[Rfam]
RNA sequence: UGUACUCACUACUGUAAGUCGUUUUGGAUAAGAACGUCUGCUAAAUUACUAAAA
Numbered sequence: 001u002g003u004a005c006u007c008a009c010u011a012c013u014g015u016a017a018g019u020c021g022u023u024u025u026g027g028a029u030a031a032g033a034a035c036g037u038c039u040g041c042u043a044a045a046u047u048a049c050u051a052a053a054a
Stems, first nucleotide, its partner, number of pairs: 013043001014041003020036006
Dot-bracket structure: ............((((...((((((.....))))))..))).)...........